[Rfam]
Record summary:
terC RNA: a 62-nucleotide RNA sequence from Sphingobium vermicomposti.

RNA sequence: UCUGCGGGCCGGGCCCCUCUGGCGGUUGGAUUUUCAUCCAGCCGCGAUGUCGGACCGCAUCG
Numbered sequence: 001u002c003u004g005c006g007g008g009c010c011g012g013g014c015c016c017c018u019c020u021g022g023c024g025g026u027u028g029g030a031u032u033u034u035c036a037u038c039c040a041g042c043c044g045c046g047a048u049g050u051c052g053g054a055c056c057g058c059a060u061c062g
Base pairs, nucleotide, nucleotide: 006056007055009053010052011051012050022045023044024043025042026041027040028039029038030037031036

It scores 65 bits against the family's covariance model. Lineage of the source: Bacteria > Pseudomonadati > Pseudomonadota > Sphingomonadales > Sphingobium. It is annotated as a cis-regulatory element.